[Rfam]
RNA sequence: AGCGCGCUAUCGUAAGACCUUGUGACCCUGGUCAUGGAUACCACGGCCUAGCUCCUGCUGAAAUGCAAGGGGACAGACUGAAAUCGGGGCCUAGGGCGAGGCGCGCU
Number, nucleotide and partner (000 for none) at each position: 001a107002g106003c105004g104005c103006g102007c101008u000009a000010u099011c098012g097013u000014a000015a000016g000017a000018c095019c094020u093021u000022g091023u000024g000025a000026c089027c088028c087029u000030g000031g000032u000033c045034a000035u043036g042037g041038a000039u000040a000041c037042c036043a035044c000045g033046g000047c000048c000049u000050a000051g000052c000053u071054c070055c069056u068057g066058c065059u000060g000061a000062a000063a000064u000065g058066c057067a000068a056069g055070g054071g053072g000073a000074c000075a000076g000077a000078c000079u000080g000081a000082a000083a000084u000085c000086g000087g028088g027089g026090c000091c022092u000093a020094g019095g018096g000097c012098g011099a010100g000101g007102c006103g005104c004105g003106c002107u001
RNA: DUF3800-III RNA